[Rfam]
RNA sequence: AUGCGAUGAGUCGAUAGGUGGCGCAAGCCACAUAUUGAGCAUGGGAGGUCAUAUACGCAGGAGCGGACCUUGAUGAGUUGUGUGAACCUGCUCAUCACACGAAAGUGCCUUUAGUCCCCACGUUUAGUGGGGAUUUUUU
Dot-bracket structure: ...........(((((.(((((....))))).))))).....(((((((......(((....))).))))((((((((...........))))))))(((....))))))...((((((((.....)))))))).....
Numbered sequence: 001a002u003g004c005g006a007u008g009a010g011u012c013g014a015u016a017g018g019u020g021g022c023g024c025a026a027g028c029c030a031c032a033u034a035u036u037g038a039g040c041a042u043g044g045g046a047g048g049u050c051a052u053a054u055a056c057g058c059a060g061g062a063g064c065g066g067a068c069c070u071u072g073a074u075g076a077g078u079u080g081u082g083u084g085a086a087c088c089u090g091c092u093c094a095u096c097a098c099a100c101g102a103a104a105g106u107g108c109c110u111u112u113a114g115u116c117c118c119c120a121c122g123u124u125u126a127g128u129g130g131g132g133a134u135u136u137u138u139u
Stems, first nucleotide, its partner, number of pairs: 012037005018031005043110003046070004056065003071097008098107003114134008

The family of this 139-nucleotide RNA sequence from Streptococcus intermedius is "MarS sRNA". Rfam links the family to the GO terms mRNA 5'-UTR binding and positive regulation of translation, ncRNA-mediated. The base pairs follow the family's consensus structure, which is taken from published work. The organism belongs to Streptococcus intermedius, within Bacteria. From the family's description: Interacts with the 5'UTR of the mga transcript (the multiple virulence gene regulator gene) and was renamed MarS for mag-activating regulatory sRNA. In MarS deletion strains expression of mga and several Mga-activated genes is reduced. The literature on the family includes a 2017 paper in Sci Rep by Pappesch et al., "The Regulatory Small RNA MarS Supports Virulence of Streptococcus pyogenes".